[Rfam]
RNA sequence: GACGUGUCGCUAGCGAGGUAUAGAGUUCCUACGUCUUGUCACUGAAUUCAAGUCGAUUGGUAGGAACUUCAUACCGUGCUCUCGACGCCAAUCCGAU
Numbered sequence: 001g002a003c004g005u006g007u008c009g010c011u012a013g014c015g016a017g018g019u020a021u022a023g024a025g026u027u028c029c030u031a032c033g034u035c036u037u038g039u040c041a042c043u044g045a046a047u048u049c050a051a052g053u054c055g056a057u058u059g060g061u062a063g064g065a066a067c068u069u070c071a072u073a074c075c076g077u078g079c080u081c082u083c084g085a086c087g088c089c090a091a092u093c094c095g096a097u
Base pairs, nucleotide, nucleotide: 007085008084009083012080013079014078015077017075018074019073020072021071023069024068025067026066027065028064029063030062031061032060